[Rfam]
RNA sequence: ACCACAUAAGCGCCGGCCAAAGGCGCAUCAGGGGAACAUGAAUG
Numbered sequence: 001a002c003c004a005c006a007u008a009a010g011c012g013c014c015g016g017c018c019a020a021a022g023g024c025g026c027a028u029c030a031g032g033g034g035a036a037c038a039u040g041a042a043u044g
Stems, first nucleotide, its partner, number of pairs: 002034002010026005
A member of the RNA family "Brucella sRNA 150" from Brucella pinnipedialis, 44 nucleotides long.
It is annotated as a small RNA.
A reference for the family is Saadeh et al. (2015), "Transcriptome-Wide Identification of Hfq-Associated RNAs in Brucella suis by Deep Sequencing", J Bacteriol.
It is one of the family's seed sequences.